This 117-nucleotide sequence from Centaurea solstitialis belongs to the Rfam family "Small nucleolar RNA Z278".
A search with the family's covariance model found it, with a score of 45 bits.
A reference for the family is Chen et al. (2003), "The high diversity of snoRNAs in plants: identification and comparative study of 120 snoRNA genes from Oryza sativa", Nucleic Acids Res.
The base pairs follow the family's consensus structure, which was predicted with PFOLD.
RNA sequence: GCUAAUGAUGAUAUAAUCCGAUUGUAUGAGGUACGGUGGAUCCGAGACCCUGUUUUACAGGGAGAACCACUUGGUUGAAGCUGUAUUUCAUUUGAUAUUACUGGAUUUAACUGAGGC
Numbered sequence: 001g002c003u004a005a006u007g008a009u010g011a012u013a014u015a016a017u018c019c020g021a022u023u024g025u026a027u028g029a030g031g032u033a034c035g036g037u038g039g040a041u042c043c044g045a046g047a048c049c050c051u052g053u054u055u056u057a058c059a060g061g062g063a064g065a066a067c068c069a070c071u072u073g074g075u076u077g078a079a080g081c082u083g084u085a086u087u088u089c090a091u092u093u094g095a096u097a098u099u100a101c102u103g104g105a106u107u108u109a110a111c112u113g114a115g116g117c
Stems, first nucleotide, its partner, number of pairs: 001117003048062005